The record is a 156-nucleotide RNA from Pontibacillus marinus, which matches "Ribosomal protein L10 leader" in Rfam. The family's RNA type in Rfam is cis-regulatory leader. The family's consensus secondary structure was predicted with CMfinder. The match comes from Rfam's covariance-model search (73 bits). From the family's description: This family is a putative r-protein leader autoregulatory structure found in B. subtilis and other low-GC Gram-positive bacteria. It is located in the 5' untranslated regions of mRNAs encoding ribosomal proteins L10 and L12 (rplJ-rplL). The organism belongs to Pontibacillus marinus, within Bacteria.
RNA sequence: GUAAAUAAAUACGUUAUACCGUAGACAGUGGGUGCGAACCAAUCGCUUAAUUUCCUACCGAGGUGUGUUGAUAUAAGAGAACGCCGUUCGUAAAACACGUUCUCUCAACCAAAGUGCCUCUAUGUCUACUCAUAGAGGCACUUUUUUUCUCUGAAC
Numbered sequence: 001g002u003a004a005a006u007a008a009a010u011a012c013g014u015u016a017u018a019c020c021g022u023a024g025a026c027a028g029u030g031g032g033u034g035c036g037a038a039c040c041a042a043u044c045g046c047u048u049a050a051u052u053u054c055c056u057a058c059c060g061a062g063g064u065g066u067g068u069u070g071a072u073a074u075a076a077g078a079g080a081a082c083g084c085c086g087u088u089c090g091u092a093a094a095a096c097a098c099g100u101u102c103u104c105u106c107a108a109c110c111a112a113a114g115u116g117c118c119u120c121u122a123u124g125u126c127u128a129c130u131c132a133u134a135g136a137g138g139c140a141c142u143u144u145u146u147u148u149c150u151c152u153g154a155a156c
Base pairs, nucleotide, nucleotide: 028058029057030056031055032054034046035045036044114141115140116139117138118137119136120135121134122133123132